[Rfam]
RNA sequence: UAUGAGAAAGCCAAACCAGGCGUAAGACUGGGACGGAAAGUCACGGGUCUUUUCAGUAGUGCUUUUCAUCGUUGAUUCUGAACACAGAUAGCCGGACUGCCCCAU
Numbered sequence: 001u002a003u004g005a006g007a008a009a010g011c012c013a014a015a016c017c018a019g020g021c022g023u024a025a026g027a028c029u030g031g032g033a034c035g036g037a038a039a040g041u042c043a044c045g046g047g048u049c050u051u052u053u054c055a056g057u058a059g060u061g062c063u064u065u066u067c068a069u070c071g072u073u074g075a076u077u078c079u080g081a082a083c084a085c086a087g088a089u090a091g092c093c094g095g096a097c098u099g100c101c102c103c104a105u
Stems, first nucleotide, its partner, number of pairs: 004101001011036002016031004021026001034091001039098004044094003047089003
RNA: c-di-GMP-I-GGC riboswitch aptamer
Organism: Desulfosalsimonas propionicica